[Rfam]
Nucleotides: 282
Stems, first nucleotide, its partner, number of pairs: 018134008026072002030068002033065004037059005042053002045050001080126001082124001084122001088114003092110003145202002153196003162187004166181006208275003211270005224259004232253002236246004
Number, partner (000 for none) and nucleotide at each position: 001000c002000c003000u004000c005000u006000u007000a008000c009000a010000a011000a012000c013000a014000u015000c016000a017000a018134g019133g020132a021131u022130c023129u024128g025127u026072g027071c028000c029000u030068a031067g032000c033065g034064g035063u036062c037059c038058u039057c040056u041055g042053c043052u044000u045050c046000u047000c048000c049000g050045g051000a052043a053042g054000u055041c056040a057039g058038g059037g060000u061000u062036g063035a064034u065033u066000g067031c068030u069000u070000u071027g072026c073000a074000g075000c076000u077000c078000g079000a080126u081000a082124a083000c084122g085000a086000c087000a088114u089113g090112g091000a092110g093109c094108c095000a096000u097000c098000c099000a100000c101000u102000u103000g104000c105000u106000a107000u108094g109093g110092u111000g112090u113089c114088a115000a116000u117000c118000a119000u120000c121000c122084u123000a124082u125000c126080g127025a128024c129023a130022g131021g132020u133019c134018c135000a136000a137000g138000a139000c140000u141000g142000a143000u144000c145202u146201g147000g148000u149000c150000u151000u152000u153196u154195g155194c156000u157000g158000c159000c160000u161000c162187g163186u164185u165184c166181g167180u168179c169178g170177u171176c172000g173000u174000c175000a176171g177170a178169c179168g180167g181166c182000u183000u184165g185164a186163g187162c188000u189000u190000u191000g192000c193000g194155g195154c196153a197000u198000c199000u200000g201146c202145a203000u204000c205000a206000a207000a208275g209274g210273c211270g212269c213268u214267a215266u216000a217000u218000u219000c220000c221000a222000a223000a224259c225258c226257c227256c228000u229000u230000u231000u232253c233252c234000g235000a236246g237245a238244c239243c240000g241000u242000c243239g244238g245237u246236c247000c248000g249000u250000g251000a252233g253232g254000u255000u256227g257226g258225g259224g260000a261000a262000a263000a264000c265000c266215a267214u268213g269212g270211c271000a272000u273210g274209c275208c276000u277000a278000c279000a280000u281000u282000u